[Rfam]
Record summary:
Bacterial large subunit ribosomal RNA: a 344-nucleotide part of an RNA from Candidatus Saccharibacteria bacterium RAAC3_TM7_1. The organism belongs to Candidatus Saccharimonadota, within Bacteria.
RNA sequence: CACAAGAGGGGUGAGAAUCCCCUCGGCCGUAAGAGCAAGGUUUCCUGAGCUAUGGUAAUCAUCUCAGGGUUAGUCGGGCCUAAGCCGAGGCGCAUAGCGUAGGCGAUGGACAUCAGGUUAAUAUUCCUGAACCGGCGUGUUUUGUACACUGUUCACGGCGAGAUAUUCGGAGCGGAUUCAUGGUUUAUCCGUCCAACCUAGGGGGAACCCGAUGGGAGUGAAAGUUACCUUUUUAAGGUGACGAUUCUGGAAAAGGCGCUGGCUAGAAAAGCAGGUGUACGCGUGGACACGUCGACCGUACCGCAAACCAACACAGGUGCUCGAGUCGAGUAGACUCAGGCUUA
Numbered sequence: 001c002a003c004a005a006g007a008g009g010g011g012u013g014a015g016a017a018u019c020c021c022c023u024c025g026g027c028c029g030u031a032a033g034a035g036c037a038a039g040g041u042u043u044c045c046u047g048a049g050c051u052a053u054g055g056u057a058a059u060c061a062u063c064u065c066a067g068g069g070u071u072a073g074u075c076g077g078g079c080c081u082a083a084g085c086c087g088a089g090g091c092g093c094a095u096a097g098c099g100u101a102g103g104c105g106a107u108g109g110a111c112a113u114c115a116g117g118u119u120a121a122u123a124u125u126c127c128u129g130a131a132c133c134g135g136c137g138u139g140u141u142u143u144g145u146a147c148a149c150u151g152u153u154c155a156c157g158g159c160g161a162g163a164u165a166u167u168c169g170g171a172g173c174g175g176a177u178u179c180a181u182g183g184u185u186u187a188u189c190c191g192u193c194c195a196a197c198c199u200a201g202g203g204g205g206a207a208c209c210c211g212a213u214g215g216g217a218g219u220g221a222a223a224g225u226u227a228c229c230u231u232u233u234u235a236a237g238g239u240g241a242c243g244a245u246u247c248u249g250g251a252a253a254a255g256g257c258g259c260u261g262g263c264u265a266g267a268a269a270a271g272c273a274g275g276u277g278u279a280c281g282c283g284u285g286g287a288c289a290c291g292u293c294g295a296c297c298g299u300a301c302c303g304c305a306a307a308c309c310a311a312c313a314c315a316g317g318u319g320c321u322c323g324a325g326u327c328g329a330g331u332a333g334a335c336u337c338a339g340g341c342u343u344a
Base pairs, nucleotide, nucleotide: 006024007023008022009021010020011019025342026341027340028339033322034321035320036319039302040301044068045067046066047065048064049063053061054060075298076297077296079109080108084104085103086102088100090098091097113130114129115128116127117126133294134293135292136291137290138289139288140287141286142285144280145279148276149275150273151272152271156261157260158259159258164254167250168249169248170247171246172192173191174190175189176188177187194220197216198215199214200213203210204209224242225241226240227239228238229237308317309316324336325335326334327333